[Rfam]
RNA sequence: GAAACAUCCCUAUGGGGCAGGACUUGCUUCAGUGGGGCCUUGGUGCUCACUGAGACUGCCCCUUGAAUGUGUCUCU
Numbered sequence: 001g002a003a004a005c006a007u008c009c010c011u012a013u014g015g016g017g018c019a020g021g022a023c024u025u026g027c028u029u030c031a032g033u034g035g036g037g038c039c040u041u042g043g044u045g046c047u048c049a050c051u052g053a054g055a056c057u058g059c060c061c062c063u064u065g066a067a068u069g070u071g072u073c074u075c076u
Base pairs, nucleotide, nucleotide: 001075002074004072005071006070007069011065012064014062015061016060017059018058019057021056023054029053030052031051032050033049034048035047036046037044038043
About this RNA: Shown here is a 76-nucleotide RNA from Pipistrellus kuhlii, a member of the family "mir-9229 microRNA precursor family". It scores 81 bits against the family's covariance model. The organism belongs to Pipistrellus, within Eukaryota.